RNA sequence: CGGGUUUACUCCUGGAUGUUACCGUUUCGCCGAGCCGGAGCCCGACGUCGUUUUGGUGUCUGAUUCGGUAAGGAAUCGGGAGCACCAUCUGCGUAGGCUGGUGGUUUAAGGCUUGCGCCACCUACGGUCUUGGACAGCCCCCGCCAGGCAGGGACCCCAAUCUUGGCGGCUGGCGGAAGCGCUCCCACCA
Dot-bracket structure: .((((((...((((........((...((.((.((....)).)).)).))...(((((((((((((......)))))))..))))))...(((..((((....((((((((((............))))))))))))))..)))))))...))))))..............((.((........)).)).
Numbered sequence: 001c002g003g004g005u006u007u008a009c010u011c012c013u014g015g016a017u018g019u020u021a022c023c024g025u026u027u028c029g030c031c032g033a034g035c036c037g038g039a040g041c042c043c044g045a046c047g048u049c050g051u052u053u054u055g056g057u058g059u060c061u062g063a064u065u066c067g068g069u070a071a072g073g074a075a076u077c078g079g080g081a082g083c084a085c086c087a088u089c090u091g092c093g094u095a096g097g098c099u100g101g102u103g104g105u106u107u108a109a110g111g112c113u114u115g116c117g118c119c120a121c122c123u124a125c126g127g128u129c130u131u132g133g134a135c136a137g138c139c140c141c142c143g144c145c146a147g148g149c150a151g152g153g154a155c156c157c158c159a160a161u162c163u164u165g166g167c168g169g170c171u172g173g174c175g176g177a178a179g180c181g182c183u184c185c186c187a188c189c190a
Stems, first nucleotide, its partner, number of pairs: 002157006011148004023050002028047002031044002034041002054087006060079007091144003096139004104135010172189002175186002